[Rfam]
RNA sequence: AGUGGUUCUCCAGUGACACACCCCGGAACCAGGCUCCCUCCUCUCUGGUUACGGGCAUGUCACCCGAGAACCGCA
Numbered sequence: 001a002g003u004g005g006u007u008c009u010c011c012a013g014u015g016a017c018a019c020a021c022c023c024c025g026g027a028a029c030c031a032g033g034c035u036c037c038c039u040c041c042u043c044u045c046u047g048g049u050u051a052c053g054g055g056c057a058u059g060u061c062a063c064c065c066g067a068g069a070a071c072c073g074c075a
Stems, first nucleotide, its partner, number of pairs: 002074002005071006013063005021055003025052001027050007
The family of this 75-nucleotide sequence from Myotis davidii is "mir-9223 microRNA precursor family".
Taxonomically the source falls in Myotis (Eukaryota, Vertebrata, Teleostomi, Theria).
Gene Ontology terms of the family: RISC complex and miRNA-mediated post-transcriptional gene silencing.
Pairs were carried over by alignment from the consensus structure, which was predicted with RNAalifold.